The family of this 182-nucleotide RNA sequence from Aliiglaciecola lipolytica is "6S / SsrS RNA".
RNA sequence: CAUCUCCUGGGAUGUUUGCCAGUUCAGUUAUGUCCCUGGCCGAUGCUAAUUAACCUGGAAAUUGAUUCCAUUACUAUUGUGCAAGCUUGGCUUGAACCAAGAAGCCUACGGUAAUGAUGAUGUUUCCGCCCUGAACUUUCGGUUCACGGGCGCACACCGAACAGCGGCAUUUUGGGAGACCC
Numbered sequence: 001c002a003u004c005u006c007c008u009g010g011g012a013u014g015u016u017u018g019c020c021a022g023u024u025c026a027g028u029u030a031u032g033u034c035c036c037u038g039g040c041c042g043a044u045g046c047u048a049a050u051u052a053a054c055c056u057g058g059a060a061a062u063u064g065a066u067u068c069c070a071u072u073a074c075u076a077u078u079g080u081g082c083a084a085g086c087u088u089g090g091c092u093u094g095a096a097c098c099a100a101g102a103a104g105c106c107u108a109c110g111g112u113a114a115u116g117a118u119g120a121u122g123u124u125u126c127c128g129c130c131c132u133g134a135a136c137u138u139u140c141g142g143u144u145c146a147c148g149g150g151c152g153c154a155c156a157c158c159g160a161a162c163a164g165c166g167g168c169a170u171u172u173u174g175g176g177a178g179a180c181c182c
Stems, first nucleotide, its partner, number of pairs: 003179013017166003032151004037146003040142002057127003061123002069116007081105002086101005
It scores 101 bits against the family's covariance model. The source organism's lineage runs through Bacteria, Pseudomonadati, Pseudomonadota, Alteromonadales and Aliiglaciecola lipolytica. The family's consensus secondary structure is taken from published work.